[Rfam]
Overview
The record is an 89-nucleotide RNA from Acinetobacter sp. TGL-Y2, which matches "Glycine riboswitch aptamer" in Rfam. It scores 73 bits against the family's covariance model.

RNA sequence: UAAGUUAUUGCAGGAGAGAGGUCUUCUGUAGAUCCGCCGAAGGAGCAACGACCCCGGAAUCUCUCAGGCAAAAGGACUGUAAUAAUUUU
Dot-bracket structure: .....((((((((......((((.......)))).(((((..(((...((....))....))))).))).......)))))))).....
Numbered sequence: 001u002a003a004g005u006u007a008u009u010g011c012a013g014g015a016g017a018g019a020g021g022u023c024u025u026c027u028g029u030a031g032a033u034c035c036g037c038c039g040a041a042g043g044a045g046c047a048a049c050g051a052c053c054c055c056g057g058a059a060u061c062u063c064u065c066a067g068g069c070a071a072a073a074g075g076a077c078u079g080u081a082a083u084a085a086u087u088u089u
Stems, first nucleotide, its partner, number of pairs: 006084008020034004036069003039065002043063003049056002